[Rfam]
RNA sequence: ACAGUGCAAAAGGCCAUAGCAGAAGCGCUCAUGUCAUGGUCCUGUCAGAUUUUAACAAAUCCACAAAUUCUGCU
Numbered sequence: 001a002c003a004g005u006g007c008a009a010a011a012g013g014c015c016a017u018a019g020c021a022g023a024a025g026c027g028c029u030c031a032u033g034u035c036a037u038g039g040u041c042c043u044g045u046c047a048g049a050u051u052u053u054a055a056c057a058a059a060u061c062c063a064c065a066a067a068u069u070c071u072g073c074u
Base pairs, nucleotide, nucleotide: 012041013040014039015038018074019073020072021071022070023069024068025037027035048061049060050059051058052057
Rfam assigns this 74-nucleotide sequence from Crocodylus porosus to the family "Mammalian CPEB3 ribozyme". Pairs were carried over by alignment from the consensus structure, which is taken from published work. The source organism's lineage runs through Eukaryota, Eumetazoa, Teleostomi, Longirostres and Crocodylus. The match comes from Rfam's covariance-model search (43 bits).